Shown here is a 133-nucleotide RNA sequence from Shigella genomosp. SF-2015, a member of the family "RtT RNA".

[Rfam]
RNA sequence: UAGCUCAGUUGGUAGAGCAAUUGACUUUUAAUCAAUUGGUCGCAGGUUCGAGUUGAGCGCAGCGAAACAACGGAGCCGCUCGCGGCGACGGCCCGAAGGGCGAGCGAAGCGAGUCAUCCUGCACGACCCACCA
Number, nucleotide and partner (000 for none) at each position: 001u000002a000003g000004c000005u000006c000007a000008g000009u000010u000011g000012g000013u000014a000015g124016a000017g122018c121019a120020a000021u000022u116023g000024a000025c000026u000027u000028u000029u000030a000031a000032u000033c000034a000035a000036u000037u102038g101039g000040u100041c099042g000043c000044a000045g000046g000047u097048u096049c095050g094051a000052g000053u000054u064055g063056a000057g000058c000059g000060c000061a000062g000063c055064g054065a000066a000067a000068c000069a000070a000071c090072g089073g000074a000075g000076c000077c087078g086079c085080u000081c000082g000083c000084g000085g079086c078087g077088a000089c072090g071091g000092c000093c000094c050095g049096a048097a047098g000099g041100g040101c038102g037103a000104g000105c000106g000107a000108a000109g000110c000111g000112a000113g000114u000115c000116a022117u000118c000119c000120u019121g018122c017123a000124c015125g000126a000127c000128c000129c000130a000131c000132c000133a000
Overview: The family's RNA type in Rfam is cis-regulatory element. The source organism's lineage runs through Bacteria, Pseudomonadota, Enterobacteriaceae, Shigella and Shigella genomosp. SF-2015. From the family's description: This family represents a bacterial cis-regulatory element known as RtT RNA. The exact function of RtT is unknown although it is thought that it may be involved in changing the cellular response in relation to amino acid starvation.